A member of the RNA family "c-di-GMP-I riboswitch aptamer" from Geosporobacter ferrireducens, 86 nucleotides long. A search with the family's covariance model found it, with a score of 54 bits. Its family is annotated with cyclic-di-GMP binding in the Gene Ontology.

RNA sequence: AAAUUGUAAAAGUAAAGCCAUUGAAAGGUGGUAACACAAAGUCGUGAGUCUAAGUCAUUUUAUGAUAGGAUAGCUGGGUUGCCUAU
Numbered sequence: 001a002a003a004u005u006g007u008a009a010a011a012g013u014a015a016a017g018c019c020a021u022u023g024a025a026a027g028g029u030g031g032u033a034a035c036a037c038a039a040a041g042u043c044g045u046g047a048g049u050c051u052a053a054g055u056c057a058u059u060u061u062a063u064g065a066u067a068g069g070a071u072a073g074c075u076g077g078g079u080u081g082c083c084u085a086u
Stems, first nucleotide, its partner, number of pairs: 012037002017032006040080004045076002048071003055065004